[Rfam]
RNA sequence: ACUCAGUUAUACGACUGACGGAAAGUGGAAAGAACCACAUGGAAGUAUAAUGUUAAGGAGUCGACCGUCUGGGCUAGCACC
Number, nucleotide and partner (000 for none) at each position: 001a000002c000003u000004c052005a000006g051007u050008u049009a048010u047011a046012c045013g000014a000015c042016u041017g069018a068019c067020g066021g065022a000023a000024a000025g038026u037027g036028g035029a000030a000031a000032g000033a000034a000035c028036c027037a026038c025039a000040u000041g016042g015043a000044a000045g012046u011047a010048u009049a008050a007051u006052g004053u000054u000055a000056a000057g000058g000059a075060g074061u073062c072063g000064a000065c021066c020067g019068u018069c017070u000071g000072g062073g061074c060075u059076a000077g000078c000079a000080c000081c000
Shown here is an 81-nucleotide RNA from Kandleria vitulina, a member of the family "ZMP/ZTP riboswitch aptamer (pfl RNA motif)". The family's consensus secondary structure is taken from published work. The match comes from Rfam's covariance-model search (52 bits). NCBI's taxonomy places the organism under Bacteria, Bacillati, Erysipelotrichia, Kandleria, Kandleria vitulina.